[Rfam]
RNA sequence: CGACACCGAGCGGGAGAGUCCCCGAGCCGACCGGCCCGGGGCGCCGAAGGGGCAAACUCCCCACAACCUCUCAGGCGCCAGGACCGCUCGGGUAGG
Numbered sequence: 001c002g003a004c005a006c007c008g009a010g011c012g013g014g015a016g017a018g019u020c021c022c023c024g025a026g027c028c029g030a031c032c033g034g035c036c037c038g039g040g041g042c043g044c045c046g047a048a049g050g051g052g053c054a055a056a057c058u059c060c061c062c063a064c065a066a067c068c069u070c071u072c073a074g075g076c077g078c079c080a081g082g083a084c085c086g087c088u089c090g091g092g093u094a095g096g
Stems, first nucleotide, its partner, number of pairs: 006091008020041004043076003046072002050070003
RNA: Glycine riboswitch aptamer
Organism: Barrientosiimonas humi